RNA sequence: CGUGUGGUGUUCGGCUGAGGGCUGAAUAGCGACACGGCCUUAGCAGAGGU
Dot-bracket structure: (((((.((..((((((...))))))...)).)))))..............
Numbered sequence: 001c002g003u004g005u006g007g008u009g010u011u012c013g014g015c016u017g018a019g020g021g022c023u024g025a026a027u028a029g030c031g032a033c034a035c036g037g038c039c040u041u042a043g044c045a046g047a048g049g050u
Stems, first nucleotide, its partner, number of pairs: 001036005007030002011025006
A member of the RNA family "L31-Gammaproteobacteria ribosomal protein leader" from Proteus mirabilis, 50 nucleotides long. Its Rfam clan is "Ribosomal Protein L31 Leader clan". On this family, see Eckert and Weinberg, BMC Microbiol 2020: "Discovery of 20 novel ribosomal leader candidates in bacteria and archaea".